[Rfam]
RNA sequence: AGGGGUAUAGUAUAACGGUAGUACGACGGUCUCCAAAACCGUUGGUGGGGGUUCGAUUCCCUCUACCCCUG
Numbered sequence: 001a002g003g004g005g006u007a008u009a010g011u012a013u014a015a016c017g018g019u020a021g022u023a024c025g026a027c028g029g030u031c032u033c034c035a036a037a038a039c040c041g042u043u044g045g046u047g048g049g050g051g052u053u054c055g056a057u058u059c060c061c062u063c064u065a066c067c068c069c070u071g
Stems, first nucleotide, its partner, number of pairs: 001070007010024004026042005047063005